[Rfam]
RNA sequence: GAACUCAUUACAUACCAUGAUCACGAAAGUUGUUUUUCUAGAGCGAAGCUUGCCCUUUGGACUUUGGGGUGUAUUGACCCCUGCGAUUCCUCUAAAUGUGGGAAACGCGACUGCAUGAUUUGUGGCAAUGGGGGACUGCGUUUGUGCUUUCCCCUA
Numbered sequence: 001g002a003a004c005u006c007a008u009u010a011c012a013u014a015c016c017a018u019g020a021u022c023a024c025g026a027a028a029g030u031u032g033u034u035u036u037u038c039u040a041g042a043g044c045g046a047a048g049c050u051u052g053c054c055c056u057u058u059g060g061a062c063u064u065u066g067g068g069g070u071g072u073a074u075u076g077a078c079c080c081c082u083g084c085g086a087u088u089c090c091u092c093u094a095a096a097u098g099u100g101g102g103a104a105a106c107g108c109g110a111c112u113g114c115a116u117g118a119u120u121u122g123u124g125g126c127a128a129u130g131g132g133g134g135a136c137u138g139c140g141u142u143u144g145u146g147c148u149u150u151c152c153c154c155u156a
Stems, first nucleotide, its partner, number of pairs: 001114001003112001007037001010034001014033002017030002040082002043079001045078001047075002051071003054067002084109002087105001088103002091101002130155006138147003
Shown here is a 156-nucleotide RNA sequence from Pan troglodytes, a member of the family "U1 spliceosomal RNA". The match comes from Rfam's covariance-model search (70 bits). The family's consensus secondary structure is taken from published work. By type it is a spliceosomal small nuclear RNA. Lineage of the source: Eukaryota > Gnathostomata > Teleostomi > Primates > Pan.